The record is a 112-nucleotide sequence from Plutella xylostella, which matches "mir-8517 microRNA precursor family" in Rfam. The match comes from Rfam's covariance-model search (78 bits). Rfam links the family to the GO terms RISC complex and miRNA-mediated post-transcriptional gene silencing. The base pairs follow the family's consensus structure, which was predicted with RNAalifold. The source organism's lineage runs through Eukaryota, Metazoa, Pterygota, Neoptera and Plutella.
RNA sequence: UUACAGAACAUUUCAGCUAUUGAACUGUUUUGUCCCUCUCUGUCAAUGAACAAAUUUUUCUUUGUCAGAGAGGGACAAAACUUUUAGUUUAAUAGCUAAAACGUUCUGUAAC
Numbered sequence: 001u002u003a004c005a006g007a008a009c010a011u012u013u014c015a016g017c018u019a020u021u022g023a024a025c026u027g028u029u030u031u032g033u034c035c036c037u038c039u040c041u042g043u044c045a046a047u048g049a050a051c052a053a054a055u056u057u058u059u060c061u062u063u064g065u066c067a068g069a070g071a072g073g074g075a076c077a078a079a080a081c082u083u084u085u086a087g088u089u090u091a092a093u094a095g096c097u098a099a100a101a102c103g104u105u106c107u108g109u110a111a112c
Base pairs, nucleotide, nucleotide: 001111002110003109004108005107006106011101012100013099015097016096017095018094019093020092021091022090023089024088025087026086027081028080029069030068031067032066034064049059050058052056